[Rfam]
Nucleotides: 142
Stems, first nucleotide, its partner, number of pairs: 004065007015042006077136004082131006091123004
Number, partner (000 for none) and nucleotide at each position: 001000a002000a003000a004065g005064c006063a007062g008061a009060g010059a011000u012000u013000g014000u015042g016041u017040g018039u019038a020037u021000c022000g023000g024000c025000u026000u027000g028000u029000g030000c031000u032000g033000u034000u035000u036000a037020a038019u039018g040017c041016a042015u043000u044000u045000u046000g047000u048000a049000u050000u051000g052000a053000a054000a055000g056000u057000u058000a059010u060009c061008u062007c063006u064005g065004c066000g067000a068000a069000a070000u071000c072000g073000a074000u075000u076000u077136g078135g079134g080133g081000c082131a083130g084129a085128u086127g087126g088000g089000c090000a091123g092122u093121u094120g095000u096000g097000a098000u099000u100000c101000a102000u103000u104000g105000u106000c107000a108000a109000u110000u111000g112000g113000a114000u115000a116000u117000a118000c119000u120094c121093a122092a123091c124000a125000a126087u127086c128085a129084u130083c131082u132000u133080c134079c135078c136077c137000a138000c139000a140000u141000u142000u
Shown here is a 142-nucleotide sequence from Arabis alpina, a member of the family "small nucleolar RNA snoR135". Lineage of the source: Eukaryota > Streptophytina > Embryophyta > Mesangiospermae > Arabis. The family has 6 seed sequences and 837 matches in Rfam 15.1. Pairs were carried over by alignment from the consensus structure, which was predicted with RNAalifold. It scores 129 bits against the family's covariance model. Gene Ontology terms of the family: RNA processing and nucleolus.